The family of this 266-nucleotide sequence from Streptomyces griseorubiginosus is "Streptomyces sRNA 4677". For this family Rfam cites "Complex intra-operonic dynamics mediated by a small RNA in Streptomyces coelicolor" (Hindra et al., PLoS One, 2014). Rfam describes the family as follows. Located in the intergenic region between anti-sigma factor SCO4677 gene and a putative regulatory protein gene SCO4676. scr4677 expression requires the SCO4677 activity and scr4677 sRNA itself seem to affect the levels of the SCO4676-associated transcripts. By type it is a small RNA.

RNA sequence: GGCGCCGGUGUCGCGGGCGCUCUUUCUGAAAGAACUCCGGGAGAAAGAAACCUCACCAAGCCCCACCCCUCCUCCCGCCGAAGCCGCAGCUCAACUCGCCUCACUCGCCCGAGUGAACAUCGCCAACUCAGCUGGAUUUCGGCCCGGUUGCUUGCUCUACAGUCAGCGCAACACGACCGCGGACCUGCCGCGGAAAGACAACGGCCCUCGCGGGGACUGGCAUCCCGAUGCGAGGGCCUAGCCACCAAGGAAGAGAUCGCUUCCUG
Number, nucleotide and partner (000 for none) at each position: 001g000002g000003c000004g000005c000006c000007g246008g245009u244010g243011u000012c000013g000014c000015g000016g079017g078018c077019g076020c000021u000022c000023u000024u000025u000026c000027u000028g000029a000030a000031a000032g000033a000034a000035c000036u000037c000038c000039g000040g000041g000042a000043g000044a000045a000046a000047g000048a000049a000050a000051c000052c000053u000054c000055a000056c000057c000058a000059a000060g000061c000062c000063c000064c000065a000066c000067c000068c000069c000070u000071c000072c000073u000074c000075c000076c019077g018078c017079c016080g000081a000082a000083g000084c000085c000086g000087c000088a000089g000090c000091u000092c000093a000094a000095c000096u000097c000098g000099c000100c000101u116102c115103a114104c113105u112106c111107g000108c000109c000110c000111g106112a105113g104114u103115g102116a101117a000118c000119a000120u000121c000122g000123c000124c000125a000126a000127c000128u000129c000130a000131g167132c166133u165134g164135g163136a000137u000138u000139u000140c000141g000142g000143c000144c000145c000146g000147g000148u000149u000150g000151c000152u000153u000154g000155c000156u000157c000158u000159a000160c000161a000162g000163u135164c134165a133166g132167c131168g000169c000170a000171a000172c000173a000174c000175g000176a000177c000178c000179g000180c000181g000182g000183a000184c000185c000186u000187g000188c000189c000190g000191c000192g000193g000194a000195a000196a000197g000198a000199c000200a000201a000202c000203g238204g237205c236206c235207c234208u000209c232210g231211c230212g000213g226214g225215g224216a223217c000218u000219g000220g000221c000222a000223u216224c215225c214226c213227g000228a000229u000230g211231c210232g209233a000234g207235g206236g205237c204238c203239u000240a000241g000242c000243c010244a009245c008246c007247a000248a000249g264250g263251a262252a261253g260254a000255g000256a000257u000258c000259g000260c253261u252262u251263c250264c249265u000266g000